Trypanosomatid snoRNA TB6Cs1H4: a 73-nucleotide RNA from Trypanosoma theileri. The organism belongs to Trypanosoma, within Eukaryota.
[Rfam]
RNA sequence: CGCCUCAAACACAAAGGUCCCUUGGCGGCUGUAUAAAUCGAUGCUGCUCCACAGGAUACCCACUGAGGCAAGA
Numbered sequence: 001c002g003c004c005u006c007a008a009a010c011a012c013a014a015a016g017g018u019c020c021c022u023u024g025g026c027g028g029c030u031g032u033a034u035a036a037a038u039c040g041a042u043g044c045u046g047c048u049c050c051a052c053a054g055g056a057u058a059c060c061c062a063c064u065g066a067g068g069c070a071a072g073a
Base pairs, nucleotide, nucleotide: 002069003068004067005066006065007064017057018056019055020054025047026046027045028044029043

Pairs were carried over by alignment from the consensus structure, which was predicted with WAR. Rfam classes the family as an H/ACA-box small nucleolar RNA. A reference for the family is Liang et al. (2005), "A genome-wide analysis of C/D and H/ACA-like small nucleolar RNAs in Trypanosoma brucei reveals a trypanosome-specific pattern of rRNA modification", RNA.